[Rfam]
RNA sequence: UGGCCGACGGGGCGCGCGCGGCCUGGAGGGGCGGGGCGGACGCAGAGCCGCGUUUAGUCUAUCGCUGCGGUUGCGAGCGCUGUAGGGAGCCUGUGCUG
Numbered sequence: 001u002g003g004c005c006g007a008c009g010g011g012g013c014g015c016g017c018g019c020g021g022c023c024u025g026g027a028g029g030g031g032c033g034g035g036g037c038g039g040a041c042g043c044a045g046a047g048c049c050g051c052g053u054u055u056a057g058u059c060u061a062u063c064g065c066u067g068c069g070g071u072u073g074c075g076a077g078c079g080c081u082g083u084a085g086g087g088a089g090c091c092u093g094u095g096c097u098g
Stems, first nucleotide, its partner, number of pairs: 002097003007094005012080004017075007025068001027066002030063002034060004038055006

Shown here is a 98-nucleotide RNA sequence from Homo sapiens, a member of the family "mir-639 microRNA precursor family".
Rfam links the family to the GO terms miRNA-mediated post-transcriptional gene silencing and RISC complex.
The organism belongs to Homo, within Eukaryota.
The family's consensus secondary structure was predicted with RNAalifold.
For this family Rfam cites "Genome-wide comparative analysis of microRNAs in three non-human primates" (Brameier, BMC Res Notes, 2010).